[Rfam]
RNA sequence: GGUGCUGUUGGAGGAUGAAGCCUCUGAGUGAUCCAUCAGCAGAGCUGCUGCUGUGCUGACACUCGUGCUGCUGACAACACACU
Numbered sequence: 001g002g003u004g005c006u007g008u009u010g011g012a013g014g015a016u017g018a019a020g021c022c023u024c025u026g027a028g029u030g031a032u033c034c035a036u037c038a039g040c041a042g043a044g045c046u047g048c049u050g051c052u053g054u055g056c057u058g059a060c061a062c063u064c065g066u067g068c069u070g071c072u073g074a075c076a077a078c079a080c081a082c083u
Stems, first nucleotide, its partner, number of pairs: 002082003006079004010072002013034004018029001036059005044051002
The family of this 83-nucleotide RNA sequence from Bucco capensis is "Small nucleolar RNA SNORD71". snoRNA HBII-239 belongs to the family of C/D snoRNAs.It is the human orthologue of the mouse MBII-239 described and is predicted to guide 2'O-ribose methylation of 5.8S rRNA on residue U14. Rfam 15.1 lists 556 matches to the family in 528 species. By type it is an H/ACA-box small nucleolar RNA. On this family, see Huttenhofer et al., EMBO J 2001: "RNomics: an experimental approach that identifies 201 candidates for novel, small, non-messenger RNAs in mouse". It scores 70 bits against the family's covariance model. The source organism's lineage runs through Eukaryota, Tetrapoda, Archosauria, Saurischia and Bucco.